[Rfam]
RNA sequence: UGCUGUGAUGCCGUAAUUUGCGUCUUAUCCGGUGCUCAGCGACAGUCGCCUGCUGUCACCGCGCUGGCACCGCCGAGCUGACGACUCCUUCCUGCUGAGCA
Numbered sequence: 001u002g003c004u005g006u007g008a009u010g011c012c013g014u015a016a017u018u019u020g021c022g023u024c025u026u027a028u029c030c031g032g033u034g035c036u037c038a039g040c041g042a043c044a045g046u047c048g049c050c051u052g053c054u055g056u057c058a059c060c061g062c063g064c065u066g067g068c069a070c071c072g073c074c075g076a077g078c079u080g081a082c083g084a085c086u087c088c089u090u091c092c093u094g095c096u097g098a099g100c101a
Stems, first nucleotide, its partner, number of pairs: 001101003021083004030072005039064002041057005

Rfam assigns this 101-nucleotide RNA sequence from Cyanoderma ruficeps to the family "Small nucleolar RNA SNORD16". Rfam 15.1 lists 1,321 matches to the family in 655 species. The base pairs follow the family's consensus structure, which was predicted with PFOLD. Rfam links the family to the GO terms RNA processing and nucleolus.